[Rfam]
RNA sequence: GGAGACGGCCAGGGGGCCGCGGGGGAAACCCUGAGGAAGGUCCGGACUCCGCCGGGCAGGCUGCUCGGGGCAACCCGAGAGGGGGCGACCCCUGGAAAGUGCCACAGAGAACAGACCGCCAACGGUCUCCCCUGAUCCCCCUCUCCCUGCGGGGAGAGGGUGGGGGGGAGGUGCGGGCAAGGGUGAAACGGUGGGGUAAGAGCCCACCGCCGGGACCGUGAGGCGCCCGGGCACGGUAAACCCCAGCCGGAGCAAGGCCAAAUAGGGAGGCGGUUGAGGAUGGCCCGUCCGAUGCCUCCGGGUAGGCCGCCUAGAUGAAUGGCCCCCCACGACAGAAUCCGGCCUACGGCCCUCUCCCUUA
Numbered sequence: 001g002g003a004g005a006c007g008g009c010c011a012g013g014g015g016g017c018c019g020c021g022g023g024g025g026a027a028a029c030c031c032u033g034a035g036g037a038a039g040g041u042c043c044g045g046a047c048u049c050c051g052c053c054g055g056g057c058a059g060g061c062u063g064c065u066c067g068g069g070g071c072a073a074c075c076c077g078a079g080a081g082g083g084g085g086c087g088a089c090c091c092c093u094g095g096a097a098a099g100u101g102c103c104a105c106a107g108a109g110a111a112c113a114g115a116c117c118g119c120c121a122a123c124g125g126u127c128u129c130c131c132c133u134g135a136u137c138c139c140c141c142u143c144u145c146c147c148u149g150c151g152g153g154g155a156g157a158g159g160g161u162g163g164g165g166g167g168g169a170g171g172u173g174c175g176g177g178c179a180a181g182g183g184u185g186a187a188a189c190g191g192u193g194g195g196g197u198a199a200g201a202g203c204c205c206a207c208c209g210c211c212g213g214g215a216c217c218g219u220g221a222g223g224c225g226c227c228c229g230g231g232c233a234c235g236g237u238a239a240a241c242c243c244c245a246g247c248c249g250g251a252g253c254a255a256g257g258c259c260a261a262a263u264a265g266g267g268a269g270g271c272g273g274u275u276g277a278g279g280a281u282g283g284c285c286c287g288u289c290c291g292a293u294g295c296c297u298c299c300g301g302g303u304a305g306g307c308c309g310c311c312u313a314g315a316u317g318a319a320u321g322g323c324c325c326c327c328c329a330c331g332a333c334a335g336a337a338u339c340c341g342g343c344c345u346a347c348g349g350c351c352c353u354c355u356c357c358c359u360u361a
Stems, first nucleotide, its partner, number of pairs: 001357005007351004012327007020033005038345003042342005047252004054286004059248005064079005080093005094243002099241002101237003116182002118178003123173002126170001190208006209232001210230005216223002256308004266299006278290004
This 361-nucleotide RNA from Bipolaricaulis sanaerobius belongs to the Rfam family "Bacterial RNase P class A". The match comes from Rfam's covariance-model search (218 bits). Its family is annotated with ribonuclease P activity, tRNA processing and dimeric ribonuclease P complex in the Gene Ontology. Rfam classes the family as a ribozyme. Ribonuclease P (RNase P) is a ubiquitous endoribonuclease, found in archaea, bacteria and eukarya as well as chloroplasts and mitochondria. Its best characterised activity is the generation of mature 5'-ends of tRNAs by cleaving the 5'-leader elements of precursor-tRNAs. Cellular RNase Ps are ribonucleoproteins. RNA from bacterial RNase Ps retains its catalytic activity in the absence of the protein subunit, i.e. it is a ribozyme. Isolated eukaryotic and archaeal RNase P RNA has not been shown to retain its catalytic function, but is still essential for the catalytic activity of the holoenzyme. Although the archaeal and eukaryotic holoenzyme s have a much greater protein content than the bacterial ones, the RNA cores from all the three lineages are homologous -- helices corresponding to P1, P2, P3, P4, and P10/11 are common to all cellular RNase P RNAs. Yet, there is considerable sequence variation, particularly among the eukaryotic RNAs. Identified in Yersinia as Ysr151/RnpB. NCBI's taxonomy places the organism under Bacteria, Bacteria candidate phyla, Bipolaricaulales (SeqCode), Candidatus Bipolaricaulaceae, Bipolaricaulis (SeqCode).